[Rfam]
RNA sequence: UGGAUUAAUGAUGACCUCUGAUGGCAUAUAGGUUAUUGAUGAUGAAUACAUGUUUGGAACUCUGAGAUGCAA
Numbered sequence: 001u002g003g004a005u006u007a008a009u010g011a012u013g014a015c016c017u018c019u020g021a022u023g024g025c026a027u028a029u030a031g032g033u034u035a036u037u038g039a040u041g042a043u044g045a046a047u048a049c050a051u052g053u054u055u056g057g058a059a060c061u062c063u064g065a066g067a068u069g070c071a072a
Stems, first nucleotide, its partner, number of pairs: 002070001004068003
The family of this 72-nucleotide RNA sequence from Carlito syrichta is "Small nucleolar RNA SNORD113/SNORD114 family". It is annotated as a C/D-box small nucleolar RNA. The imprinted human domain at 14q32 contains two clusters of tandemly repeated small nucleolar RNAs named 14q(I) and 14q(II) snoRNAs. These two clusters are named SNORD113 and SNORD114 respectively in the HGNC approved gene symbol nomenclature. For this family Rfam cites "Identification of tandemly-repeated C/D snoRNA genes at the imprinted human 14q32 domain reminiscent of those at the Prader-Willi/Angelman syndrome region" (Cavaille et al., Hum Mol Genet, 2002).